tRNA: a 73-nucleotide RNA from Actinoplanes philippinensis.
RNA sequence: GCGCCGCUAGCUCAAUGGGUAGAGCUUCUGACUCUUAAUCAGCAGGUUCGGGGUUCGAGUCCCCGGCGGCGCA
Numbered sequence: 001g002c003g004c005c006g007c008u009a010g011c012u013c014a015a016u017g018g019g020u021a022g023a024g025c026u027u028c029u030g031a032c033u034c035u036u037a038a039u040c041a042g043c044a045g046g047u048u049c050g051g052g053g054u055u056c057g058a059g060u061c062c063c064c065g066g067c068g069g070c071g072c073a
Stems, first nucleotide, its partner, number of pairs: 001072007010025004028042004049065005